[Rfam]
RNA sequence: CUUAUGAGUAGAAGCGUUCAGCCGGUUACCUGUCUUUACCGGUGGGUCAUUGCUCAAUGU
Numbered sequence: 001c002u003u004a005u006g007a008g009u010a011g012a013a014g015c016g017u018u019c020a021g022c023c024g025g026u027u028a029c030c031u032g033u034c035u036u037u038a039c040c041g042g043u044g045g046g047u048c049a050u051u052g053c054u055c056a057a058u059g060u
Base pairs, nucleotide, nucleotide: 005056006055007054008053009052010051015045019046021043022042023041024040025039026038

Shown here is a 60-nucleotide RNA sequence from Mangrovibacter sp. MFB070, a member of the family "Xanthine riboswitch aptamer (NMT1 RNA)". Lineage of the source: Bacteria > Pseudomonadati > Pseudomonadota > Enterobacterales > Mangrovibacter. Its family is annotated with purine nucleobase binding in the Gene Ontology.